[Rfam]
RNA sequence: AAGACAAUUAUAGCGCCUGAGCUGAGGAAAUCGGACGGACAAUAAUCCUUAGUUGACGAGGUGGAGGUUUAUCGAAUAUUCGGCGGAUGCCUCCCGAUCGCCAGUGCCCGAUUGUAACAUUCAUUUUAAAACAGCAAAGUAAUUUGCUGCACAAAAAAAUGAAUAGGCACCCAA
Numbered sequence: 001a002a003g004a005c006a007a008u009u010a011u012a013g014c015g016c017c018u019g020a021g022c023u024g025a026g027g028a029a030a031u032c033g034g035a036c037g038g039a040c041a042a043u044a045a046u047c048c049u050u051a052g053u054u055g056a057c058g059a060g061g062u063g064g065a066g067g068u069u070u071a072u073c074g075a076a077u078a079u080u081c082g083g084c085g086g087a088u089g090c091c092u093c094c095c096g097a098u099c100g101c102c103a104g105u106g107c108c109c110g111a112u113u114g115u116a117a118c119a120u121u122c123a124u125u126u127u128a129a130a131a132c133a134g135c136a137a138a139g140u141a142a143u144u145u146g147c148u149g150c151a152c153a154a155a156a157a158a159a160u161g162a163a164u165a166g167g168c169a170c171c172c173a174a
Stems, first nucleotide, its partner, number of pairs: 020054008029046001063094005072083004095114006119164007132149007

glmS glucosamine-6-phosphate activated ribozyme aptamer: a 174-nucleotide RNA from Lysinibacillus odysseyi. The base pairs follow the family's consensus structure, which is taken from published work. Rfam links the family to the GO terms catalytic activity and regulation of gene expression. On this family, see Winkler et al., Nature 2004: "Control of gene expression by a natural metabolite-responsive ribozyme". It is annotated as a riboswitch. The organism belongs to Lysinibacillus odysseyi, within Bacteria. It scores 121 bits against the family's covariance model.